[Rfam]
RNA sequence: UGCCCCUGCAUGACGGUACGACUAGCUCCCUGUAACCCCCCCAGGGUCGGAAGGCAGCAAGGGCAUCAGGUCGUAGCAGUGCGAUACUGUCGUGCUUUU
Numbered sequence: 001u002g003c004c005c006c007u008g009c010a011u012g013a014c015g016g017u018a019c020g021a022c023u024a025g026c027u028c029c030c031u032g033u034a035a036c037c038c039c040c041c042c043a044g045g046g047u048c049g050g051a052a053g054g055c056a057g058c059a060a061g062g063g064c065a066u067c068a069g070g071u072c073g074u075a076g077c078a079g080u081g082c083g084a085u086a087c088u089g090u091c092g093u094g095c096u097u098u099u
Base pairs, nucleotide, nucleotide: 008095009094010093011092012091013090014089015088016087017086018085019083020082021080022079

Background:
The record is a 99-nucleotide RNA from marine bacterium AO1-C, which matches "Bacteroidales small SRP" in Rfam. The match comes from Rfam's covariance-model search (69 bits). Lineage of the source: Bacteria > Pseudomonadati > Bacteroidota > Cytophagia > Cytophagaceae. Its Rfam clan is "SRP clan". On this family, see Ryan et al., Nat Commun 2020: "A high-resolution transcriptome map identifies small RNA regulation of metabolism in the gut microbe Bacteroides thetaiotaomicron". Gene Ontology terms of the family: SRP-dependent cotranslational protein targeting to membrane, signal sequence recognition and signal recognition particle, plasma membrane targeting. The family's RNA type in Rfam is non-coding RNA gene. Pairs were carried over by alignment from the consensus structure, which is taken from published work.